Rfam assigns this 83-nucleotide RNA from Cynara cardunculus to the family "MIR397 microRNA precursor family". The match comes from Rfam's covariance-model search (61 bits). NCBI's taxonomy places the organism under Eukaryota, Euphyllophyta, Spermatophyta, Magnoliopsida, Cynara cardunculus subsp. cardunculus. A reference for the family is Wu et al. (2009), "Rice MicroRNA effector complexes and targets", Plant Cell.

RNA sequence: AGUAAAAACAUAAUUGAGUGCAGUGUUGACGAAUCUCUAUUGGAUUUGGAGAUUCAUCAACGCUGCACUCAAUGAUGUUUUAA
Numbered sequence: 001a002g003u004a005a006a007a008a009c010a011u012a013a014u015u016g017a018g019u020g021c022a023g024u025g026u027u028g029a030c031g032a033a034u035c036u037c038u039a040u041u042g043g044a045u046u047u048g049g050a051g052a053u054u055c056a057u058c059a060a061c062g063c064u065g066c067a068c069u070c071a072a073u074g075a076u077g078u079u080u081u082a083a
Base pairs, nucleotide, nucleotide: 006080007079008078009077010076011075013073014072015071016070017069018068019067020066021065022064023063024062025061026060027059028058031055032054033053034052035051036050037049